[Rfam]
RNA sequence: AUGGAAGUGAUGAUUAUUUCCCCAGAUGACUCGACGCUGAAAUUACUGAGCCGCUUUAUUUGUUUUUUCUUCCUUUGUUGAUCAGAAAAUCCAAGCCAGAUUUUCUGAUCCAU
Numbered sequence: 001a002u003g004g005a006a007g008u009g010a011u012g013a014u015u016a017u018u019u020c021c022c023c024a025g026a027u028g029a030c031u032c033g034a035c036g037c038u039g040a041a042a043u044u045a046c047u048g049a050g051c052c053g054c055u056u057u058a059u060u061u062g063u064u065u066u067u068u069c070u071u072c073c074u075u076u077g078u079u080g081a082u083c084a085g086a087a088a089a090u091c092c093a094a095g096c097c098a099g100a101u102u103u104u105c106u107g108a109u110c111c112a113u
Base pairs, nucleotide, nucleotide: 001113002112003111004110005109
Rfam assigns this 113-nucleotide RNA from Phtheirospermum japonicum to the family "Small nucleolar RNA Z103". The match comes from Rfam's covariance-model search (69 bits). Its family is annotated with RNA processing and nucleolus in the Gene Ontology. The family's consensus secondary structure was predicted with PFOLD.